Shown here is an 82-nucleotide RNA sequence from Anaerolinea thermolimosa, a member of the family "tRNA". Its family is annotated with triplet codon-amino acid adaptor activity in the Gene Ontology. The match comes from Rfam's covariance-model search (58 bits). Rfam describes the family as follows. Transfer RNA (tRNA) molecules are approximately 80 nucleotides in length. Their secondary structure includes four short double-helical elements and three loops (D, anti-codon, and T loops). Further hydrogen bonds mediate the characteristic L-shaped molecular structure. tRNAs have two regions of fundamental functional importance: the anti-codon, which is responsible for specific mRNA codon recognition, and the 3' end, to which the tRNAs corresponding amino acid is attached (by aminoacyl-tRNA synthetases). tRNAs cope with the degeneracy of the genetic code in two manners: having more than one tRNA (with a specific anti-codon) for a particular amino acid; and 'wobble' base-pairing, i.e. permitting non-standard base-pairing at the 3rd anti-codon position. Rfam classes the family as a transfer RNA. The organism belongs to Anaerolinea, within Bacteria.
[Rfam]
RNA sequence: GCCGAAGUGGCGGAACUGGCAUACGCGCGCGACUCAAAAUCGCGUUCCGAAAGGAAUGUGGGUUCGAUUCCCACCUUCGGCA
Numbered sequence: 001g002c003c004g005a006a007g008u009g010g011c012g013g014a015a016c017u018g019g020c021a022u023a024c025g026c027g028c029g030c031g032a033c034u035c036a037a038a039a040u041c042g043c044g045u046u047c048c049g050a051a052a053g054g055a056a057u058g059u060g061g062g063u064u065c066g067a068u069u070c071c072c073a074c075c076u077u078c079g080g081c082a
Stems, first nucleotide, its partner, number of pairs: 001081007010026003028044005058074005
Dot-bracket structure: (((((((..(((...........))).(((((.......))))).............(((((.......)))))))))))).